[Rfam]
RNA sequence: GAGCAGUGAUGACAAACUUAGGACACCUUUGGAGGGGAUAAGCCUCCGUGAAAGGAAUCUCUAUAGCCUUAACUGAGCUCU
Numbered sequence: 001g002a003g004c005a006g007u008g009a010u011g012a013c014a015a016a017c018u019u020a021g022g023a024c025a026c027c028u029u030u031g032g033a034g035g036g037g038a039u040a041a042g043c044c045u046c047c048g049u050g051a052a053a054g055g056a057a058u059c060u061c062u063a064u065a066g067c068c069u070u071a072a073c074u075g076a077g078c079u080c081u
Stems, first nucleotide, its partner, number of pairs: 001080004
This 81-nucleotide RNA from Cylicocyclus nassatus belongs to the Rfam family "Small nucleolar RNA SNORD58".
From the family's description: snoRNA U58 is found in introns 1, 3 and 6 of the ribosomal protein RPL17 gene in humans.
Rfam links the family to the GO terms nucleolus and RNA processing.
A reference for the family is Galardi et al. (2002), "Purified box C/D snoRNPs are able to reproduce site-specific 2'-O-methylation of target RNA in vitro", Mol Cell Biol.
Pairs were carried over by alignment from the consensus structure, which was predicted with PFOLD.
A search with the family's covariance model found it, with a score of 46 bits.
The source organism's lineage runs through Eukaryota, Protostomia, Chromadorea, Strongyloidea and Cylicocyclus.